[Rfam]
Background: The family of this 231-nucleotide sequence from Sorghum bicolor is "MIR6217 microRNA precursor family". It scores 169 bits against the family's covariance model.
RNA sequence: UGGCUACAAAAUAACUUACUUAUUUUGUAGCCACUUUGAGUUACGAUAAUUACUAUAUUAGUUACAAGAUUAUAGUAACUAUUUAAUAAAUGGAUUACUAUAAUAUUACGGUAAAUAUCCCCAUAUGUUAUAGUAACCAAACUAUCGUAAAUAUGUAUACAUAUUAUCGCAAAUGAGUAUAUAAAAUUAAAGUAAAUAGAGGUGGCUACAAAAUAACUUAUUUUGUAGCUA
Numbered sequence: 001u002g003g004c005u006a007c008a009a010a011a012u013a014a015c016u017u018a019c020u021u022a023u024u025u026u027g028u029a030g031c032c033a034c035u036u037u038g039a040g041u042u043a044c045g046a047u048a049a050u051u052a053c054u055a056u057a058u059u060a061g062u063u064a065c066a067a068g069a070u071u072a073u074a075g076u077a078a079c080u081a082u083u084u085a086a087u088a089a090a091u092g093g094a095u096u097a098c099u100a101u102a103a104u105a106u107u108a109c110g111g112u113a114a115a116u117a118u119c120c121c122c123a124u125a126u127g128u129u130a131u132a133g134u135a136a137c138c139a140a141a142c143u144a145u146c147g148u149a150a151a152u153a154u155g156u157a158u159a160c161a162u163a164u165u166a167u168c169g170c171a172a173a174u175g176a177g178u179a180u181a182u183a184a185a186a187u188u189a190a191a192g193u194a195a196a197u198a199g200a201g202g203u204g205g206c207u208a209c210a211a212a213a214u215a216a217c218u219u220a221u222u223u224u225g226u227a228g229c230u231a
Base pairs, nucleotide, nucleotide: 001231002230003229004228005227006226007225008224009223010222011221012220013219014218020216021215022214023213024212025211026210027209028208029207030206031205032204033203034202035201036200037199041195042194043193044192047189048188049187050186051185054181055180056179057178058177059176060174062172063171065169068168069167070166072164073163074162075160076159077158082151083150084149085148090145091144092143093142095140096135097134098133099132100131101130102129103128104127105126106125110120111119